RNA sequence: UGUAUCCUUCGGGGCAGGGUGAAAAUCCCGACCGACGGUAAUAAAGCAAAUGCUUUACAGCCCGUGACCCGUUAAUUUAUUAACGGUUGAUUCAGUGAAAAGCUGAAGCCGACAGUGAAAGUCUGGAUGGGAGAAGGAUAAA
Numbered sequence: 001u002g003u004a005u006c007c008u009u010c011g012g013g014g015c016a017g018g019g020u021g022a023a024a025a026u027c028c029c030g031a032c033c034g035a036c037g038g039u040a041a042u043a044a045a046g047c048a049a050a051u052g053c054u055u056u057a058c059a060g061c062c063c064g065u066g067a068c069c070c071g072u073u074a075a076u077u078u079a080u081u082a083a084c085g086g087u088u089g090a091u092u093c094a095g096u097g098a099a100a101a102g103c104u105g106a107a108g109c110c111g112a113c114a115g116u117g118a119a120a121g122u123c124u125g126g127a128u129g130g131g132a133g134a135a136g137g138a139u140a141a142a
Stems, first nucleotide, its partner, number of pairs: 003140008017029003031122002033111002035065004060109002069086002091107005113125003